tRNA: a 74-nucleotide RNA from Algisphaera agarilytica.
[Rfam]
RNA sequence: GUGAUCGUAGCUCAGUUGGUUAGAGCAUCGGGUUGUGAUCCCGAGGGUCGCGGGUUCGAAUCCCGUCGGUCACC
Dot-bracket structure: (((((((..((((.........)))).(((((.......))))).....(((((.......)))))))))))).
The base pairs follow the family's consensus structure, which is taken from published work.